[Rfam]
RNA sequence: ACACGCAGAACGCCGAGCUCUGCCACUGCGCGUGGGAACCACACAUCCGCAUGGCAGGGGCGGGGGAACCACAUUCGGGUACUGGUGACAGUGCCCUGGGGUGAAGCCAGACGGACCUCGUGUCCGGACGGCCGGGUGAUCUCCCAUCCGAACCCGACAGCUAACCUCGAAGGCGUCCUGGAGAGGUACU
Number, nucleotide and partner (000 for none) at each position: 001a000002c000003a000004c000005g000006c000007a000008g000009a000010a000011c175012g174013c173014c172015g000016a000017g000018c059019u058020c057021u056022g055023c054024c053025a052026c000027u000028g000029c000030g000031c000032g000033u000034g000035g000036g000037a000038a000039c000040c000041a000042c000043a000044c000045a000046u000047c000048c000049g000050c000051a000052u025053g024054g023055c022056a021057g020058g019059g018060g000061c169062g168063g167064g166065g165066g000067a000068a000069c000070c098071a097072c000073a000074u000075u000076c000077g000078g000079g000080u000081a000082c000083u000084g000085g000086u000087g000088a000089c000090a000091g000092u000093g000094c000095c000096c000097u071098g070099g155100g154101g153102u000103g000104a000105a000106g000107c131108c130109a000110g000111a000112c000113g000114g000115a000116c000117c000118u000119c000120g000121u000122g000123u000124c000125c000126g000127g000128a000129c000130g108131g107132c000133c000134g149135g148136g147137u146138g000139a000140u000141c000142u000143c000144c000145c000146a137147u136148c135149c134150g000151a000152a000153c101154c100155c099156g000157a000158c000159a000160g000161c000162u000163a000164a000165c065166c064167u063168c062169g061170a000171a000172g014173g013174c012175g011176u000177c000178c000179u000180g000181g000182a000183g000184a000185g000186g000187u000188a000189c000190u000
Shown here is a 190-nucleotide RNA sequence from Flavimobilis marinus, a member of the family "c-di-AMP riboswitch aptamer (ydaO/yuaA leader)". Gene Ontology terms of the family: cyclic-di-AMP binding and regulation of gene expression.